Shown here is a 299-nucleotide RNA sequence from Neobacillus piezotolerans, a member of the family "Group I catalytic intron".
Its family is annotated with Group I intron splicing in the Gene Ontology.
RNA sequence: AAGACGUGGUGAAGAAGUGCCUCGUCUAUAAAUAAACCUCGUGAAUUGCUGGGAACUCUUUACAUGGCUUGCUGGCUACAACGCAACUGGAAACGGUAAGCGUGAAUGCUUGAAAACAGCGAGUGGAUAAAGACAAUCAGCAGCCAAGCUCCUAAGUUCUAAAGAAUAGGGAGAAGGUCCAACGACCAUCGAAACCACGCUUUAUGCGGAAGGGAGUAGAGUAGGGGCCAAGCGGUUUCCGAAGUGCGAGGGUACUCUUGUAGUGCAAGAUAUGGUCUGAACUCUAAGGUGACUUAGAG
Number, nucleotide and partner (000 for none) at each position: 001a000002a027003g026004a025005c024006g023007u000008g000009g000010u000011g000012a000013a000014g000015a000016a000017g000018u000019g000020c000021c000022u000023c006024g005025u004026c003027u002028a000029u000030a000031a000032a000033u000034a000035a000036a000037c251038c250039u249040c248041g000042u246043g245044a000045a000046u000047u142048g141049c140050u139051g138052g137053g000054a000055a000056c000057u133058c132059u131060u130061u129062a000063c000064a000065u000066g000067g000068c000069u000070u000071g000072c000073u000074g000075g000076c000077u000078a000079c000080a000081a000082c000083g000084c000085a000086a000087c000088u000089g000090g000091a000092a000093a000094c000095g000096g000097u000098a000099a000100g000101c000102g000103u000104g000105a000106a000107u000108g000109c000110u000111u000112g000113a000114a000115a000116a000117c000118a000119g000120c000121g000122a000123g000124u000125g000126g000127a000128u000129a061130a060131a059132g058133a057134c000135a000136a000137u052138c051139a050140g049141c048142a047143g178144c177145c000146a000147a000148g000149c173150u172151c171152c170153u000154a000155a000156g000157u166158u165159c164160u000161a000162a000163a000164g159165a158166a157167u000168a000169g000170g152171g151172a150173g149174a000175a000176g000177g144178u143179c000180c000181a000182a278183c000184g277185a276186c275187c274188a273189u000190c000191g000192a000193a000194a000195c000196c000197a000198c000199g000200c000201u000202u000203u000204a000205u000206g000207c000208g000209g000210a000211a000212g000213g000214g000215a000216g000217u000218a000219g000220a000221g000222u000223a000224g000225g000226g000227g000228c000229c000230a000231a000232g000233c000234g000235g000236u000237u000238u000239c000240c000241g000242a000243a000244g000245u043246g042247c000248g040249a039250g038251g037252g000253u000254a264255c263256u262257c000258u000259u000260g000261u000262a256263g255264u254265g000266c000267a000268a000269g000270a000271u000272a000273u188274g187275g186276u185277c184278u182279g000280a000281a000282c000283u000284c297285u296286a295287a294288g293289g000290u000291g000292a000293c288294u287295u286296a285297g284298a000299g000
Rfam 15.1 lists 5,602 matches to the family in 1,395 species. Group I catalytic introns are large self-splicing ribozymes. They catalyse their own excision from mRNA, tRNA and rRNA precursors in a wide range of organisms. The match comes from Rfam's covariance-model search (72 bits). Lineage of the source: Bacteria > Bacilli > Caryophanales > Bacillaceae > Neobacillus.